[Rfam]
The family of this 123-nucleotide RNA sequence from Glycine max is "MIR4372 microRNA precursor family". Clan: MIR1520 microRNA precursor clan. Rfam's curators put it in the seed alignment.
RNA sequence: ACGUUGACAGUCACAUGUCGCACUUUUAUUGAACAUUAUAUGUCACGAUUUUAUUAGAGGUUGACAUUAAUUAAGUGUACAAAAUCAACGUCCAAUAAAUGCACGAUAUGUGACGGUAAACGG
Numbered sequence: 001a002c003g004u005u006g007a008c009a010g011u012c013a014c015a016u017g018u019c020g021c022a023c024u025u026u027u028a029u030u031g032a033a034c035a036u037u038a039u040a041u042g043u044c045a046c047g048a049u050u051u052u053a054u055u056a057g058a059g060g061u062u063g064a065c066a067u068u069a070a071u072u073a074a075g076u077g078u079a080c081a082a083a084a085u086c087a088a089c090g091u092c093c094a095a096u097a098a099a100u101g102c103a104c105g106a107u108a109u110g111u112g113a114c115g116g117u118a119a120a121c122g123g
Stems, first nucleotide, its partner, number of pairs: 002122004007117002011113010023101001025099004030094002033091001036088002